[Rfam]
A member of the RNA family "SAM (S-adenosyl methionine) riboswitch aptamer" from Nakamurella alba, 114 nucleotides long.
RNA sequence: GGUCAUGAGUCCCAGCGACAAGCUCCGGCUUGCUGGGCGGCAACCCUCCGACCGUGGCUGGGGUGCUCCGGAUGAGGACCAGGUCGGCGUCAACGGCGCCGGCAACCACGGAAU
Numbered sequence: 001g002g003u004c005a006u007g008a009g010u011c012c013c014a015g016c017g018a019c020a021a022g023c024u025c026c027g028g029c030u031u032g033c034u035g036g037g038c039g040g041c042a043a044c045c046c047u048c049c050g051a052c053c054g055u056g057g058c059u060g061g062g063g064u065g066c067u068c069c070g071g072a073u074g075a076g077g078a079c080c081a082g083g084u085c086g087g088c089g090u091c092a093a094c095g096g097c098g099c100c101g102g103c104a105a106c107c108a109c110g111g112a113a114u
Stems, first nucleotide, its partner, number of pairs: 001080004009038001011037006021030002039067003044063003048057002083103009
A search with the family's covariance model found it, with a score of 98 bits.